[Rfam]
RNA sequence: AGUUCAAGUGACGAUGAAAAGACAGGGACAUCAGAAUCUCCUUUUGUUAGGAGAUGAGAAUGAUGAUUAAUGUCUAAAUGGGAAUCUCUCUGAUGCACA
Numbered sequence: 001a002g003u004u005c006a007a008g009u010g011a012c013g014a015u016g017a018a019a020a021g022a023c024a025g026g027g028a029c030a031u032c033a034g035a036a037u038c039u040c041c042u043u044u045u046g047u048u049a050g051g052a053g054a055u056g057a058g059a060a061u062g063a064u065g066a067u068u069a070a071u072g073u074c075u076a077a078a079u080g081g082g083a084a085u086c087u088c089u090c091u092g093a094u095g096c097a098c099a
Stems, first nucleotide, its partner, number of pairs: 002098002005095002
Shown here is a 99-nucleotide sequence from Brassica oleracea, a member of the family "Small nucleolar RNA R44/J54/Z268 family".
Taxonomically the source falls in Brassica oleracea (Eukaryota, Streptophyta, Spermatophyta, Magnoliopsida).
Its family is annotated with RNA processing and nucleolus in the Gene Ontology.
It scores 87 bits against the family's covariance model.
The base pairs follow the family's consensus structure, which was predicted with PFOLD.